Rfam assigns this 113-nucleotide RNA sequence from Nakamurella panacisegetis to the family "SAM (S-adenosyl methionine) riboswitch aptamer".

RNA sequence: GGUAAUGAGUGUCAGCGUGCAGCCCUGGCUUGCUGGCCGGCAACCCUCCUUCGCGGCGGGGUGCUCCAGGUGACGACCUGGUGAUCGCCGAUCGGCGGUCGCAAGCGCGAGUC
Numbered sequence: 001g002g003u004a005a006u007g008a009g010u011g012u013c014a015g016c017g018u019g020c021a022g023c024c025c026u027g028g029c030u031u032g033c034u035g036g037c038c039g040g041c042a043a044c045c046c047u048c049c050u051u052c053g054c055g056g057c058g059g060g061g062u063g064c065u066c067c068a069g070g071u072g073a074c075g076a077c078c079u080g081g082u083g084a085u086c087g088c089c090g091a092u093c094g095g096c097g098g099u100c101g102c103a104a105g106c107g108c109g110a111g112u113c
Stems, first nucleotide, its partner, number of pairs: 001078003009038001011037006021030002039065003044061003048056002081102009

Description:
The match comes from Rfam's covariance-model search (102 bits).